A member of the RNA family "mir-274 microRNA precursor family" from Drosophila willistoni, 112 nucleotides long. The base pairs follow the family's consensus structure, which was predicted with RNAalifold. NCBI's taxonomy places the organism under Eukaryota, Eumetazoa, Eumetabola, Muscomorpha, Sophophora.
RNA sequence: CCUGUUGCAGUUUCAUUUUGUGACCGACACUAACGGGUAGUAACGGGUUAACAAAGUCGUUUUUCUGGCCUUUUACUCGUUUUUGCGAUCACAAAUUCUGAAAUUGCAGCAA
Numbered sequence: 001c002c003u004g005u006u007g008c009a010g011u012u013u014c015a016u017u018u019u020g021u022g023a024c025c026g027a028c029a030c031u032a033a034c035g036g037g038u039a040g041u042a043a044c045g046g047g048u049u050a051a052c053a054a055a056g057u058c059g060u061u062u063u064u065c066u067g068g069c070c071u072u073u074u075a076c077u078c079g080u081u082u083u084u085g086c087g088a089u090c091a092c093a094a095a096u097u098c099u100g101a102a103a104u105u106g107c108a109g110c111a112a
Base pairs, nucleotide, nucleotide: 003111004110005109006108007107008106009105010104013101014100015099017095018094019093020092021091022090023089025087026086028085029084032081033080034079035078036077037076038075039074